The family of this 97-nucleotide part of an RNA from Haloarchaeobius iranensis is "Archaeal large subunit ribosomal RNA".
RNA sequence: GACGGGGCAUACAAGGCCCCACGAAAAACGACCGAGACGCGAGUCUCCAGUAGGAAUCGUGGGGAGCCGAUGUUCCGUCGUGCGUUUUGAAAAACGA
Number, nucleotide and partner (000 for none) at each position: 001g079002a078003c077004g076005g075006g074007g073008c072009a071010u070011a000012c000013a000014a000015g068016g067017c000018c000019c062020c061021a060022c059023g058024a057025a000026a000027a000028a000029c053030g000031a000032c000033c000034g047035a046036g045037a044038c043039g000040c000041g000042a000043g038044u037045c036046u035047c034048c000049a000050g000051u000052a000053g029054g000055a000056a000057u024058c023059g022060u021061g020062g019063g000064g000065a000066g000067c016068c015069g000070a010071u009072g008073u007074u006075c005076c004077g003078u002079c001080g000081u000082g000083c096084g095085u094086u000087u000088u000089g000090a000091a000092a000093a000094a085095c084096g083097a000

The organism belongs to Haloarchaeobius, within Archaea. The family's consensus secondary structure is taken from published work.